RNA sequence: CGGCGGGACACCCUUCCCCAACGAAGGGCUUUCUAUCUGAGAGGAUAGCCAUC
Numbered sequence: 001c002g003g004c005g006g007g008a009c010a011c012c013c014u015u016c017c018c019c020a021a022c023g024a025a026g027g028g029c030u031u032u033c034u035a036u037c038u039g040a041g042a043g044g045a046u047a048g049c050c051a052u053c
Base pairs, nucleotide, nucleotide: 011028012027013026014025015024016023033048034047035046036045037044038043
Shown here is a 53-nucleotide RNA from Rhizobium sp. LC145, a member of the family "serC leader". About the family: This family is a putative regulatory RNA structure that is found upstream of the serC-serA operon in some alpha-proteobacteria. The final stem of the structure overlaps the ribosome binding site of the serC reading frame. The family's RNA type in Rfam is cis-regulatory leader. The source organism's lineage runs through Bacteria, Pseudomonadota, Alphaproteobacteria, Rhizobiaceae and Rhizobium. The match comes from Rfam's covariance-model search (67 bits).